A member of the RNA family "THF (Tetrahydrofolate) riboswitch aptamer" from Lachnospiraceae bacterium MD329, 100 nucleotides long. NCBI's taxonomy places the organism under Bacteria, Bacillota, Clostridia, Lachnospirales, Lachnospiraceae. Rfam's curators write: Tetrahydrofolate (THF) riboswitch was first reported for Ames et al. as an RNA motif in 5' untranslated (5'-UTR)regions of folate transport and biosynthesis genes in Firmicutes genomes. Pairs were carried over by alignment from the consensus structure, which is taken from published work.
[Rfam]
RNA sequence: AACAGAGUAGAUUUAUGCGCGUAAAGUGCAGGGUGAACGGGGAGUUGUCACCUUGACGAAAAGCAGUAUGCUUGCGGUGCAUAAGUCGCAUCCCGCUGGA
Numbered sequence: 001a002a003c004a005g006a007g008u009a010g011a012u013u014u015a016u017g018c019g020c021g022u023a024a025a026g027u028g029c030a031g032g033g034u035g036a037a038c039g040g041g042g043a044g045u046u047g048u049c050a051c052c053u054u055g056a057c058g059a060a061a062a063g064c065a066g067u068a069u070g071c072u073u074g075c076g077g078u079g080c081a082u083a084a085g086u087c088g089c090a091u092c093c094c095g096c097u098g099g100a
Stems, first nucleotide, its partner, number of pairs: 003098003010087010020076003026057002029055008040093003044089001061073004